RNA sequence: CGAGUUGGCUGGGCGGCCGCGGACCCGAGGGUCCGAGGAAAGUCCGGACUUCACAGAGCAGGGUGAUUGCUAACGGCAAUCCGAGGUGACUCGCGGGAAAGUGCCACAGAAAACAGACCGCCACCAACGGUGGUAAGGGUGAAACGGUGCGGUAAGCGCGCACCAGCAUUCCGGGUGACCGGGAUGGCUAGGCAAACCCCACCCGAAGCAAGGCCAAGAGGUCGCACCUGGUGCGGCUGCGCAGGCGCUCGAGGGUUGCUCGCCCGAGCCUGCGGGUAGGCCGCUCGAGGCACCCGGUGACGGUGUGCCCAGAUGGAUGGUCGCCGCCUCAUCGCCGUGGUAGUUCGCGGCGGUGAGGAACAGAAUCCGGCUUAUAGGCCAACUCGUUCG
Dot-bracket structure: ((((((((((((((((((.((((((....))))))....[[[.[[[[[((((...[[[[.((((((((((.....)))))(((((....)))).)((...(((((............((((((((...))))))..)).......((((((.......)))))).(((((((((....)))))))).)..)))..)))))))))))))...((((.........................((((((......((((.]]]]))))..)))))).....))))......((((((((....))).))))).........)))))))........................................]]]]]]]].).))))))))))....
Rfam assigns this 390-nucleotide RNA to the family "Bacterial RNase P class A". Rfam classes the family as a ribozyme. It scores 292 bits against the family's covariance model.